Rfam assigns this 96-nucleotide sequence from Marinisporobacter balticus to the family "Guanidine-I riboswitch aptamer". It scores 86 bits against the family's covariance model. The base pairs follow the family's consensus structure. The family has 100 seed sequences and 1,509 matches in Rfam 15.1. From the family's description: This family represents a conserved RNA structure found upstream of the ykkC and yxkD genes in Bacillus subtilis and related genes in other bacteria.
RNA sequence: GAGUCAGUUUUCUAGGGUUCCGCAGUUUAUACUGGUCUGGUCCAAGAGAAAACGCACAGGGAGCUGUGUACACGGAAGGAUAAAAGCCUGGGAGAU
Numbered sequence: 001g002a003g004u005c006a007g008u009u010u011u012c013u014a015g016g017g018u019u020c021c022g023c024a025g026u027u028u029a030u031a032c033u034g035g036u037c038u039g040g041u042c043c044a045a046g047a048g049a050a051a052a053c054g055c056a057c058a059g060g061g062a063g064c065u066g067u068g069u070a071c072a073c074g075g076a077a078g079g080a081u082a083a084a085a086g087c088c089u090g091g092g093a094g095a096u
Stems, first nucleotide, its partner, number of pairs: 007053006015043002020040002022037001023034004054069006071091001073094001077089003